[Rfam]
RNA sequence: AUAAAAGCAGGGUCCUGUUGCCCAUGUGAACAGGUCUCUCGUAAACUUCAGGGAAAUUAUUUACAUUGUUAUUGGGUGAACCUCUGUUUGUAUCCUUCAUGGCAGAAGGUUCAGUAAAUGAUGUUACAUUA
Numbered sequence: 001a002u003a004a005a006a007g008c009a010g011g012g013u014c015c016u017g018u019u020g021c022c023c024a025u026g027u028g029a030a031c032a033g034g035u036c037u038c039u040c041g042u043a044a045a046c047u048u049c050a051g052g053g054a055a056a057u058u059a060u061u062u063a064c065a066u067u068g069u070u071a072u073u074g075g076g077u078g079a080a081c082c083u084c085u086g087u088u089u090g091u092a093u094c095c096u097u098c099a100u101g102g103c104a105g106a107a108g109g110u111u112c113a114g115u116a117a118a119u120g121a122u123g124u125u126a127c128a129u130u131a
Stems, first nucleotide, its partner, number of pairs: 005048003011037002014034004063124008077113007

Overview: Small nucleolar RNA snoR74: a 131-nucleotide sequence from Nelumbo nucifera. On this family, see Marker et al., Curr Biol 2002: "Experimental RNomics: identification of 140 candidates for small non-messenger RNAs in the plant Arabidopsis thaliana". The organism belongs to Nelumbo, within Eukaryota. By type it is an H/ACA-box small nucleolar RNA.